[Rfam]
Rfam assigns this 190-nucleotide RNA sequence from Marinisporobacter balticus to the family "Lysine riboswitch aptamer". The source organism's lineage runs through Bacteria, Bacillati, Bacillota, Clostridia and Marinisporobacter.

RNA sequence: UUGUGUCUUAGAGGUUGCGAUGUAUCAAAAGUACUAUGCAGUAGGGAUUGGAAACUGUUGAUAGCAUAGGAAAGGGAGCAUCGCCGAAAUAUAUAGGUCUACCUAAGCCUAUGUAUUGGGGCUGUAUUGAAUAAAUACGGUACUGUCGCUGAUAGAUUGCCCAGUUUGUCAGCGAGGCGCUAUUUCACAC
Numbered sequence: 001u002u003g004u005g006u007c008u009u010a011g012a013g014g015u016u017g018c019g020a021u022g023u024a025u026c027a028a029a030a031g032u033a034c035u036a037u038g039c040a041g042u043a044g045g046g047a048u049u050g051g052a053a054a055c056u057g058u059u060g061a062u063a064g065c066a067u068a069g070g071a072a073a074g075g076g077a078g079c080a081u082c083g084c085c086g087a088a089a090u091a092u093a094u095a096g097g098u099c100u101a102c103c104u105a106a107g108c109c110u111a112u113g114u115a116u117u118g119g120g121g122c123u124g125u126a127u128u129g130a131a132u133a134a135a136u137a138c139g140g141u142a143c144u145g146u147c148g149c150u151g152a153u154a155g156a157u158u159g160c161c162c163a164g165u166u167u168g169u170c171a172g173c174g175a176g177g178c179g180c181u182a183u184u185u186c187a188c189a190c
Stems, first nucleotide, its partner, number of pairs: 009182003017084006025077002034069006041062001088117011118144002121141008146175011
Dot-bracket structure: ........(((.....((((((..((.......((((((.(....................).))))))......)).))))))...(((((((((((........)))))))))))((.((((((((.....)))))))).)).(((((((((((........)))))))))))....)))........
Riboswitches are metabolite binding domains within certain messenger RNAs that serve as precision sensors for their corresponding targets. It scores 114 bits against the family's covariance model.